The record is an 87-nucleotide RNA sequence from Gossypium harknessii, which matches "MIR7486 microRNA precursor family" in Rfam. The family's consensus secondary structure was predicted with RNAalifold. The source organism's lineage runs through Eukaryota, Tracheophyta, malvids, Malvoideae and Gossypium. The family has 9 seed sequences and 10,132 matches in Rfam 15.1.

[Rfam]
RNA sequence: UACGUCAACGCGAGUUGCUGACCUGGUAACAAAUCGCGCCCUCAAGGACGCCAUUUGCUGCCACGUCAGCAACUCGUGCUGACGUGG
Numbered sequence: 001u002a003c004g005u006c007a008a009c010g011c012g013a014g015u016u017g018c019u020g021a022c023c024u025g026g027u028a029a030c031a032a033a034u035c036g037c038g039c040c041c042u043c044a045a046g047g048a049c050g051c052c053a054u055u056u057g058c059u060g061c062c063a064c065g066u067c068a069g070c071a072a073c074u075c076g077u078g079c080u081g082a083c084g085u086g087g
Stems, first nucleotide, its partner, number of pairs: 001086007009078013024063005030057005036051003040047002